The family of this 108-nucleotide RNA sequence from Mangrovimonas yunxiaonensis is "6S-Flavo RNA". It scores 106 bits against the family's covariance model.
[Rfam]
RNA sequence: ACUCAACACAAAUUCUUUAAAAAGGGUGAGUUUAAGUUGUAAAAGCACGCUAUCCUCGAAUAGAUCCUUGACCAGCUUGUUAGCCCUAAACUUGUUUUUAAGGGGUUU
Numbered sequence: 001a002c003u004c005a006a007c008a009c010a011a012a013u014u015c016u017u018u019a020a021a022a023a024g025g026g027u028g029a030g031u032u033u034a035a036g037u038u039g040u041a042a043a044a045g046c047a048c049g050c051u052a053u054c055c056u057c058g059a060a061u062a063g064a065u066c067c068u069u070g071a072c073c074a075g076c077u078u079g080u081u082a083g084c085c086c087u088a089a090a091c092u093u094g095u096u097u098u099u100a101a102g103g104g105g106u107u108u
Stems, first nucleotide, its partner, number of pairs: 023087005034078005043069003050063004